[Rfam]
RNA sequence: UAAUAUAAUAAUUAUGAACUUCGUAUAAUCCCGAUAAUCUGGUUCGGGAGUUUCUACCAAGCACCUUAAAAGCUUGAUUACGAAGAAGACGCUUCACGUG
Numbered sequence: 001u002a003a004u005a006u007a008a009u010a011a012u013u014a015u016g017a018a019c020u021u022c023g024u025a026u027a028a029u030c031c032c033g034a035u036a037a038u039c040u041g042g043u044u045c046g047g048g049a050g051u052u053u054c055u056a057c058c059a060a061g062c063a064c065c066u067u068a069a070a071a072g073c074u075u076g077a078u079u080a081c082g083a084a085g086a087a088g089a090c091g092c093u094u095c096a097c098g099u100g
Stems, first nucleotide, its partner, number of pairs: 019085007029049006058076005